[Rfam]
RNA sequence: UUGAUAACUGGGCAAACAUACCGAAAGGUAUGGGCGCAAAGUCUCCGGCCUACGGGAAACUAUGGUAGCGGGACUGCGGCA
Numbered sequence: 001u002u003g004a005u006a007a008c009u010g011g012g013c014a015a016a017c018a019u020a021c022c023g024a025a026a027g028g029u030a031u032g033g034g035c036g037c038a039a040a041g042u043c044u045c046c047g048g049c050c051u052a053c054g055g056g057a058a059a060c061u062a063u064g065g066u067a068g069c070g071g072g073a074c075u076g077c078g079g080c081a
Base pairs, nucleotide, nucleotide: 012037013036017032018031019030020029021028022027040075041074042073043072045071046070047069048066049065050064055060
RNA: c-di-GMP-I riboswitch aptamer